[Rfam]
The family of this 51-nucleotide sequence from Moorena producens is "Nitrogen stress-induced RNA 1". The literature on the family includes a 2010 paper in J Mol Biol by Ionescu et al., "Heterocyst-specific transcription of NsiR1, a non-coding RNA encoded in a tandem array of direct repeats in cyanobacteria". By type it is a small RNA.

RNA sequence: UAGUAGAUGCACCCUGACUAAUCCCUCAGCUACCGGCUGGGGAUUUUUUUU
Numbered sequence: 001u002a003g004u005a006g007a008u009g010c011a012c013c014c015u016g017a018c019u020a021a022u023c024c025c026u027c028a029g030c031u032a033c034c035g036g037c038u039g040g041g042g043a044u045u046u047u048u049u050u051u
Stems, first nucleotide, its partner, number of pairs: 003012002024042008